Shown here is a 102-nucleotide sequence from Chlorocebus sabaeus, a member of the family "Y RNA". Rfam's curators write: Y RNAs are components of the Ro ribonucleoprotein particle (Ro RNP), in association with Ro60 and La proteins. The family's consensus secondary structure is taken from published work. It scores 68 bits against the family's covariance model.

RNA sequence: GGCUAGUCCGAAUGCAGCGGUGUUGGUGACUAACUGAUCACAACCAGAUACAGAUUUCUUUGUUCCUUCUCCACUCCCACUGCUUCGCUUGACUAGCCUCUA
Numbered sequence: 001g002g003c004u005a006g007u008c009c010g011a012a013u014g015c016a017g018c019g020g021u022g023u024u025g026g027u028g029a030c031u032a033a034c035u036g037a038u039c040a041c042a043a044c045c046a047g048a049u050a051c052a053g054a055u056u057u058c059u060u061u062g063u064u065c066c067u068u069c070u071c072c073a074c075u076c077c078c079a080c081u082g083c084u085u086c087g088c089u090u091g092a093c094u095a096g097c098c099u100c101u102a
Stems, first nucleotide, its partner, number of pairs: 001098008010090002014086001016081002019078002022076001032064003036060002